The family of this 67-nucleotide RNA from Chelativorans sp. BNC1 is "S-element".
The source organism's lineage runs through Bacteria, Pseudomonadota, Alphaproteobacteria, Phyllobacteriaceae and Chelativorans.
The family has 29 seed sequences and 231 matches in Rfam 15.1.
Rfam links the family to the GO terms translation regulator activity and mRNA transcription.
The family's consensus secondary structure is taken from published work.
The literature on the family includes a 2004 paper in Mol Microbiol by Venkova-Canova et al., "Two discrete elements are required for the replication of a repABC plasmid: an antisense RNA and a stem-loop structure".
By type it is a cis-regulatory element.
The sequence is in the family's curated seed alignment.
About the family: This family represents a group of S-elements from p42d and related plasmids.
RNA sequence: UGUCAAGAGUCCUGGCGUCGUUUCGGCGAGCAGAUUUCUUUUGCCUGAGAGAGGGUGAAAGGAAAUG
Numbered sequence: 001u002g003u004c005a006a007g008a009g010u011c012c013u014g015g016c017g018u019c020g021u022u023u024c025g026g027c028g029a030g031c032a033g034a035u036u037u038c039u040u041u042u043g044c045c046u047g048a049g050a051g052a053g054g055g056u057g058a059a060a061g062g063a064a065a066u067g
Stems, first nucleotide, its partner, number of pairs: 010063004016057004021053003028046001030044005